[Rfam]
RNA: MIR5070 microRNA precursor family
Organism: Brachypodium distachyon
RNA sequence: CAGGGUAUUCUUUGACCCUGUUUAGUUCAACCAAAUGAACUAAAGUUUCAAAAUGACACAACCUUUUGAAAAACUAGUUCAUUUGUUUGAACUAAAAAGGGUCAAAUGAUACCCUG
Numbered sequence: 001c002a003g004g005g006u007a008u009u010c011u012u013u014g015a016c017c018c019u020g021u022u023u024a025g026u027u028c029a030a031c032c033a034a035a036u037g038a039a040c041u042a043a044a045g046u047u048u049c050a051a052a053a054u055g056a057c058a059c060a061a062c063c064u065u066u067u068g069a070a071a072a073a074c075u076a077g078u079u080c081a082u083u084u085g086u087u088u089g090a091a092c093u094a095a096a097a098a099g100g101g102u103c104a105a106a107u108g109a110u111a112c113c114c115u116g
Stems, first nucleotide, its partner, number of pairs: 002115008011106009021096010032085011